[Rfam]
RNA: c-di-AMP riboswitch aptamer (ydaO/yuaA leader)
RNA sequence: UCUUGACCGGCGACGAACCCGUCGCCGUGGGAACCGGGGACCCACCUUCCGGGGUGAAUCCGCGCCGAGGCGCGGUAGGGCGAUCUUCCGGGCCCGAACCCGUCAGCUAACCCGGUAGGCGGCCACAAGCGGAAGA
Numbered sequence: 001u002c003u004u005g006a007c008c009g010g011c012g013a014c015g016a017a018c019c020c021g022u023c024g025c026c027g028u029g030g031g032a033a034c035c036g037g038g039g040a041c042c043c044a045c046c047u048u049c050c051g052g053g054g055u056g057a058a059u060c061c062g063c064g065c066c067g068a069g070g071c072g073c074g075g076u077a078g079g080g081c082g083a084u085c086u087u088c089c090g091g092g093c094c095c096g097a098a099c100c101c102g103u104c105a106g107c108u109a110a111c112c113c114g115g116u117a118g119g120c121g122g123c124c125a126c127a128a129g130c131g132g133a134a135g136a
Stems, first nucleotide, its partner, number of pairs: 011121002014118001019031002033116006043051001052101003060075004078095004